This 139-nucleotide RNA from Thermoflavimicrobium daqui belongs to the Rfam family "FMN riboswitch aptamer (RFN element)".
It scores 113 bits against the family's covariance model.
Rfam links the family to the GO term FMN binding.
The family's consensus secondary structure is taken from published work.
RNA sequence: AUCAUCCUUCGGGGCUGGGUGCAAAUCCCGACCGGCGGUGAUGACAAUCUUUAUUGUCUUAGCCCGUGACCCGCUUGUAGCGGUGGAUUCGGUGAAACUCCGGAGCCGACAGUAAAAGUCUGGAUGGGAGAAGGAUGUU
Dot-bracket structure: ..((((((((......(((.......))).[[((((((.......................[[))))...((.........))....(((((.......)))))]])).(((.....]]))).......))))))))..